[Rfam]
RNA sequence: GGCGCUCUGCGCUUCUCGACAGGAGAGACAUAUUCCCCGGGGCCUUAAUGAUCCCUUAGGGAGCUGUCCCUGAGGAGGCCCGUGGGCUUCUUCACACGGCACCCACCUACUUUGUAGGUUCCCGGGAUCGACUUCUCCAUCGGUUGUGUGGACGCCA
Numbered sequence: 001g002g003c004g005c006u007c008u009g010c011g012c013u014u015c016u017c018g019a020c021a022g023g024a025g026a027g028a029c030a031u032a033u034u035c036c037c038c039g040g041g042g043c044c045u046u047a048a049u050g051a052u053c054c055c056u057u058a059g060g061g062a063g064c065u066g067u068c069c070c071u072g073a074g075g076a077g078g079c080c081c082g083u084g085g086g087c088u089u090c091u092u093c094a095c096a097c098g099g100c101a102c103c104c105a106c107c108u109a110c111u112u113u114g115u116a117g118g119u120u121c122c123c124g125g126g127a128u129c130g131a132c133u134u135c136u137c138c139a140u141c142g143g144u145u146g147u148g149u150g151g152a153c154g155c156c157a
Stems, first nucleotide, its partner, number of pairs: 002155003006152007015143001017142003034127004039122006059104003063100005072093009